A member of the RNA family "mir-276 microRNA precursor family" from Ladona fulva, 89 nucleotides long. Rfam links the family to the GO terms miRNA-mediated post-transcriptional gene silencing and RISC complex. The base pairs follow the family's consensus structure, which was predicted with RNAalifold. The organism belongs to Ladona, within Eukaryota. On this family, see Li et al., BMC Genomics 2009: "Direct sequencing and expression analysis of a large number of miRNAs in Aedes aegypti and a multi-species survey of novel mosquito miRNAs".
[Rfam]
RNA sequence: UGGCAAAUUUACCUGGAGCGAGGUAUAGAGUUCCUACGUGACUAUUUAUAACUGUAGGAACUUCAUACCGUGCUCUUGGAUUUGCUACG
Numbered sequence: 001u002g003g004c005a006a007a008u009u010u011a012c013c014u015g016g017a018g019c020g021a022g023g024u025a026u027a028g029a030g031u032u033c034c035u036a037c038g039u040g041a042c043u044a045u046u047u048a049u050a051a052c053u054g055u056a057g058g059a060a061c062u063u064c065a066u067a068c069c070g071u072g073c074u075c076u077u078g079g080a081u082u083u084g085c086u087a088c089g
Stems, first nucleotide, its partner, number of pairs: 012079002017074004022069005028063010